[Rfam]
RNA sequence: GUUCCCGGUGAUGUAAGAAUGACCAUGCUAAUUCUGAAUAUUGAUUUUGAAGAAAGCUUAUGUUAUUUAUCUGAGGGAGCA
Number, nucleotide and partner (000 for none) at each position: 001g080002u079003u078004c077005c076006c000007g000008g000009u000010g000011a000012u000013g000014u000015a000016a000017g000018a000019a000020u000021g000022a000023c000024c000025a000026u000027g000028c000029u000030a000031a000032u000033u000034c000035u000036g000037a000038a000039u000040a000041u000042u000043g000044a000045u000046u000047u000048u000049g000050a000051a000052g000053a000054a000055a000056g000057c000058u000059u000060a000061u000062g000063u000064u000065a000066u000067u000068u000069a000070u000071c000072u000073g000074a000075g000076g005077g004078a003079g002080c001081a000

Rfam assigns this 81-nucleotide RNA sequence from Capsicum baccatum to the family "Small nucleolar RNA snoR53Y". The family's consensus secondary structure was predicted with WAR. Rfam links the family to the GO terms nucleolus and RNA processing. Its Rfam clan is "snoR53 clan".